[Rfam]
RNA sequence: GCGAGCUGGUGGACGAUUACUGCGAAAGCAGAGGAAACUCCUCCCUCAAUGCAGAUGUGUGUUGCGGUGACGCAAAGCCAGAGAUGGCAGGCAACAGAACAGAAAAAAUCCGAGUUGGAGCACCAUGAUGGGCAAUCCCCUGAGCUUUCCAGCAAAUAGGAAUGAAAAGUCUGUCCCAUACAGAGAAAAGCCAAACAGAACUUGGAUCUGCACCUAUAGUUCAGGUAGGCUGCAAAGCGAAAUGUCGUUUACAAACAGAAGGAGGGUUACGGCCAGCACGC
Numbered sequence: 001g002c003g004a005g006c007u008g009g010u011g012g013a014c015g016a017u018u019a020c021u022g023c024g025a026a027a028g029c030a031g032a033g034g035a036a037a038c039u040c041c042u043c044c045c046u047c048a049a050u051g052c053a054g055a056u057g058u059g060u061g062u063u064g065c066g067g068u069g070a071c072g073c074a075a076a077g078c079c080a081g082a083g084a085u086g087g088c089a090g091g092c093a094a095c096a097g098a099a100c101a102g103a104a105a106a107a108a109u110c111c112g113a114g115u116u117g118g119a120g121c122a123c124c125a126u127g128a129u130g131g132g133c134a135a136u137c138c139c140c141u142g143a144g145c146u147u148u149c150c151a152g153c154a155a156a157u158a159g160g161a162a163u164g165a166a167a168a169g170u171c172u173g174u175c176c177c178a179u180a181c182a183g184a185g186a187a188a189a190g191c192c193a194a195a196c197a198g199a200a201c202u203u204g205g206a207u208c209u210g211c212a213c214c215u216a217u218a219g220u221u222c223a224g225g226u227a228g229g230c231u232g233c234a235a236a237g238c239g240a241a242a243u244g245u246c247g248u249u250u251a252c253a254a255a256c257a258g259a260a261g262g263a264g265g266g267u268u269a270c271g272g273c274c275a276g277c278a279c280g281c
Stems, first nucleotide, its partner, number of pairs: 001281003005277005010271002012249006020031004036268003040265005045185003051213001055209001057181005062075005077088004090176002095173004109161003114153006130140002189231004198222005
The family of this 281-nucleotide sequence from Candidatus Nitrosotenuis cloacae is "Archaeal RNase P". Its Rfam clan is "RNaseP clan". For this family Rfam cites "Ribonuclease P: unity and diversity in a tRNA processing ribozyme" (Frank and Pace, Annu Rev Biochem, 1998). By type it is a ribozyme. A search with the family's covariance model found it, with a score of 167 bits. Pairs were carried over by alignment from the consensus structure, which is taken from published work. About the family: Ribonuclease P (RNase P) is a ubiquitous endoribonuclease, found in archaea, bacteria and eukarya as well as chloroplasts and mitochondria. Its best characterised activity is the generation of mature 5'-ends of tRNAs by cleaving the 5'-leader elements of precursor-tRNAs. Cellular RNase Ps are ribonucleoproteins. RNA from bacterial RNase Ps retains its catalytic activity in the absence of the protein subunit, i.e. it is a ribozyme. Isolated eukaryotic and archaeal RNase P RNA has not been shown to retain its catalytic function, but is still essential for the catalytic activity of the holoenzyme. Although the archaeal and eukaryotic holoenzymes have a much greater protein content than the bacterial ones, the RNA cores from all the three lineages are homologous -- helices corresponding to P1, P2, P3, P4, and P10/11 are common to all cellular RNase P RNAs. Yet, there is considerable sequence variation, particularly among the eukaryotic RNAs. The source organism's lineage runs through Archaea, Thermoproteati, Nitrososphaerota and Candidatus Nitrosotenuis. Gene Ontology terms of the family: ribonuclease P activity, multimeric ribonuclease P complex and tRNA processing.